[Rfam]
RNA sequence: AAGAGUUGUUCUAAUUCUUUUCGUAUAAUUGCAGGGAUAUGGCCUGCGAGUCUCUACCAAGCUCCCGUAAAUAGCUUGACUACGAAAAAUCACUUGCAGCCU
Numbered sequence: 001a002a003g004a005g006u007u008g009u010u011c012u013a014a015u016u017c018u019u020u021u022c023g024u025a026u027a028a029u030u031g032c033a034g035g036g037a038u039a040u041g042g043c044c045u046g047c048g049a050g051u052c053u054c055u056a057c058c059a060a061g062c063u064c065c066c067g068u069a070a071a072u073a074g075c076u077u078g079a080c081u082a083c084g085a086a087a088a089a090u091c092a093c094u095u096g097c098a099g100c101c102u
Stems, first nucleotide, its partner, number of pairs: 018088008029049007058078006
Description
Purine riboswitch aptamer: a 102-nucleotide sequence from Halalkalibacter wakoensis. NCBI's taxonomy places the organism under Bacteria, Bacillati, Bacillota, Halalkalibacter, Halalkalibacter wakoensis. The family is grouped with related families in Rfam's "Purine riboswitches".